tRNA: a 71-nucleotide RNA sequence from Dietzia sp. ANT_WB102. It scores 73 bits against the family's covariance model. Lineage of the source: Bacteria > Actinomycetes > Mycobacteriales > Dietziaceae > Dietzia.
RNA sequence: GCGGGUGUAGCUUAAUGGUAAAGCCCCUGCCUUCCAAGCAGGCUACGCGGGUUCGAUUCCCGUCACCCGCU
Numbered sequence: 001g002c003g004g005g006u007g008u009a010g011c012u013u014a015a016u017g018g019u020a021a022a023g024c025c026c027c028u029g030c031c032u033u034c035c036a037a038g039c040a041g042g043c044u045a046c047g048c049g050g051g052u053u054c055g056a057u058u059c060c061c062g063u064c065a066c067c068c069g070c071u
Base pairs, nucleotide, nucleotide: 001070002069003068004067005066006065007064010024011023012022013021026042027041028040029039030038047063048062049061050060051059